[Rfam]
RNA sequence: GUAGGGAACGCACGGCCGUAGAUCCGACACGCCCGCCGGUUGGUGGGCUUGGGACUGCGGUAGUGU
Numbered sequence: 001g002u003a004g005g006g007a008a009c010g011c012a013c014g015g016c017c018g019u020a021g022a023u024c025c026g027a028c029a030c031g032c033c034c035g036c037c038g039g040u041u042g043g044u045g046g047g048c049u050u051g052g053g054a055c056u057g058c059g060g061u062a063g064u065g066u
Stems, first nucleotide, its partner, number of pairs: 010066004015061007024053002031048007
RNA: S15-Halobacteria ribosomal protein leader